[Rfam]
RNA sequence: AGCAAUUACAUAAAGUGGAUGGGCGGUUAGCCAACUCCCCGGUGAAGGGAGGUGGUAAAGAUGACGGUAUACGAAGCAAUCAUCGUGGCAUUAACAUCAGGUCUAGUUCUCGUAAAUGUGCUGAUACUUGUAAUGCAAAUCGUCAGAGAAAUAAGAAAAAAGUAACUGUCCAUCACCCCGACCAAAGGAUUGGAUAGUUACUUUUUUGGUAAUUAUAAAAUUCUGGUCAACCGCUCUUCAUGCGGAGGUAGUUGCUUAGGCCUGAGUAUAGGUGUACUCAGG
Numbered sequence: 001a002g003c004a005a006u007u008a009c010a011u012a013a014a015g016u017g018g019a020u021g022g023g024c025g026g027u028u029a030g031c032c033a034a035c036u037c038c039c040c041g042g043u044g045a046a047g048g049g050a051g052g053u054g055g056u057a058a059a060g061a062u063g064a065c066g067g068u069a070u071a072c073g074a075a076g077c078a079a080u081c082a083u084c085g086u087g088g089c090a091u092u093a094a095c096a097u098c099a100g101g102u103c104u105a106g107u108u109c110u111c112g113u114a115a116a117u118g119u120g121c122u123g124a125u126a127c128u129u130g131u132a133a134u135g136c137a138a139a140u141c142g143u144c145a146g147a148g149a150a151a152u153a154a155g156a157a158a159a160a161a162g163u164a165a166c167u168g169u170c171c172a173u174c175a176c177c178c179c180g181a182c183c184a185a186a187g188g189a190u191u192g193g194a195u196a197g198u199u200a201c202u203u204u205u206u207u208g209g210u211a212a213u214u215a216u217a218a219a220a221u222u223c224u225g226g227u228c229a230a231c232c233g234c235u236c237u238u239c240a241u242g243c244g245g246a247g248g249u250a251g252u253u254g255c256u257u258a259g260g261c262c263u264g265a266g267u268a269u270a271g272g273u274g275u276a277c278u279c280a281g282g
Base pairs, nucleotide, nucleotide: 001256002255003254004253005252007250008249009248011246015176016175017174018173021170022169026166027165028164029163031055032054033053035051036050037049038048039047063144064143065142066141067140068139076121077120078119130136186224187223188222189221190220191219231245232244233243234242261282262281263280264279265278266277267276268275269274
RNA: BsrG
Organism: Oceanobacillus bengalensis